[Rfam]
Source information:
The family of this 168-nucleotide sequence from Tsuneonella aeria is "Manganese Mn2+ riboswitch aptamer (yybP-ykoY)". Rfam's curators write: This RNA was originally discovered in E. coli during a large scale screen and was named SraF. The family was later found to exist upstream of related families of protein genes in many bacteria, including the the yybP and ykoK genes in B. subtilis. The specific functions of these proteins are unknown, but this structured RNA element may be involved in their genetic regulation as a riboswitch. The organism belongs to Tsuneonella, within Bacteria.
RNA sequence: GCGCUUGUCAUCUGGGGAGUAGCCCGCCGCGCCCCGCGCGGUUCCUUGCGUCAACACACUCGAUCGAGAGAUCGUGGCGCAAGGGGACGGUACGCCGUCUGGACGAGACCAAUGGCAUCAUCGUUUUCGCCUGGCCGGGCGGAACGCGGUGGUGCCGUUUGUCGUCUC
Numbered sequence: 001g002c003g004c005u006u007g008u009c010a011u012c013u014g015g016g017g018a019g020u021a022g023c024c025c026g027c028c029g030c031g032c033c034c035c036g037c038g039c040g041g042u043u044c045c046u047u048g049c050g051u052c053a054a055c056a057c058a059c060u061c062g063a064u065c066g067a068g069a070g071a072u073c074g075u076g077g078c079g080c081a082a083g084g085g086g087a088c089g090g091u092a093c094g095c096c097g098u099c100u101g102g103a104c105g106a107g108a109c110c111a112a113u114g115g116c117a118u119c120a121u122c123g124u125u126u127u128c129g130c131c132u133g134g135c136c137g138g139g140c141g142g143a144a145c146g147c148g149g150u151g152g153u154g155c156c157g158u159u160u161g162u163c164g165u166c167u168c
Stems, first nucleotide, its partner, number of pairs: 026042003044084010061074005
A search with the family's covariance model found it, with a score of 54 bits.
For this family Rfam cites "Novel small RNA-encoding genes in the intergenic regions of Escherichia coli" (Argaman et al., Curr Biol, 2001).